[Rfam]
RNA sequence: GUGCAGACCUUCCAGCGAGGCUCAGCCUGCAGUGGCUCUGAUCUUUCCUAUAGUGUCUGCUAGAGAGAGAGAGGCCGUUUGAGGCCCUGCUGUGACUCCUUACAGCAGGGUUAUAGGUAAACCUCCAACAAAC
Numbered sequence: 001g002u003g004c005a006g007a008c009c010u011u012c013c014a015g016c017g018a019g020g021c022u023c024a025g026c027c028u029g030c031a032g033u034g035g036c037u038c039u040g041a042u043c044u045u046u047c048c049u050a051u052a053g054u055g056u057c058u059g060c061u062a063g064a065g066a067g068a069g070a071g072a073g074g075c076c077g078u079u080u081g082a083g084g085c086c087c088u089g090c091u092g093u094g095a096c097u098c099c100u101u102a103c104a105g106c107a108g109g110g111u112u113a114u115a116g117g118u119a120a121a122c123c124u125c126c127a128a129c130a131a132a133c
Stems, first nucleotide, its partner, number of pairs: 003060006018044003024037004071125004085110006092103003
The family of this 133-nucleotide RNA sequence from Dissostichus mawsoni is "Small nucleolar RNA SNORA9".
Its family is annotated with RNA processing and nucleolus in the Gene Ontology.
About the family: ACA9 is a member of the H/ACA class of snoRNA that guide the sites of modification of uridines to pseudouridines.
Lineage of the source: Eukaryota > Actinopteri > Neopterygii > Notothenioidei > Dissostichus.
The family's RNA type in Rfam is H/ACA-box small nucleolar RNA.
The match comes from Rfam's covariance-model search (101 bits).